[Rfam]
RNA sequence: GGGAUAUAACAACCAUAGCAGAAGUGCUAACGUCACGGCCCUGUCAGAUUCUAACGAACUUGCAAAUUCUGCU
Dot-bracket structure: ............[[..((((((((((.......)))]]......(((.(((....))).)))....)))))))

The record is a 73-nucleotide sequence from Alligator sinensis, which matches "Mammalian CPEB3 ribozyme" in Rfam. NCBI's taxonomy places the organism under Eukaryota, Craniata, Teleostomi, Archelosauria, Alligator. The family's consensus secondary structure is taken from published work.